[Rfam]
RNA sequence: CAUAAAAGUAGAGGUUGCGUUAAUCAUAAGUAACCGGCUGGAUGUUGCAGGAACAGGGGAAGGCCGAUAAAAGGGAGCGACGCCGAAGAUUCAUGCAGAUCUGCCUGUUUGGAUCUGGGCAUGUGGUGAAGAACCAUAUGACUGUCAUCUGUGCAGGAUGGGGAGCUACAGAAGAA
Numbered sequence: 001c002a003u004a005a006a007a008g009u010a011g012a013g014g015u016u017g018c019g020u021u022a023a024u025c026a027u028a029a030g031u032a033a034c035c036g037g038c039u040g041g042a043u044g045u046u047g048c049a050g051g052a053a054c055a056g057g058g059g060a061a062g063g064c065c066g067a068u069a070a071a072a073g074g075g076a077g078c079g080a081c082g083c084c085g086a087a088g089a090u091u092c093a094u095g096c097a098g099a100u101c102u103g104c105c106u107g108u109u110u111g112g113a114u115c116u117g118g119g120c121a122u123g124u125g126g127u128g129a130a131g132a133a134c135c136a137u138a139u140g141a142c143u144g145u146c147a148u149c150u151g152u153g154c155a156g157g158a159u160g161g162g163g164a165g166c167u168a169c170a171g172a173a174g175a176a
Base pairs, nucleotide, nucleotide: 008169009168010167011166017083018082019081020080021079024076025075033068035066036065037064038063039062087116088115089114090113091112092111093110095108096107097106098105117143118142120140121139122138123137124136125135126134127133145161146160147159148158149157150156
Record summary
A member of the RNA family "Lysine riboswitch aptamer" from Clostridium sp. CAG:299, 176 nucleotides long. A search with the family's covariance model found it, with a score of 102 bits. The organism belongs to Clostridium, within Bacteria. Rfam links the family to the GO term lysine biosynthetic process.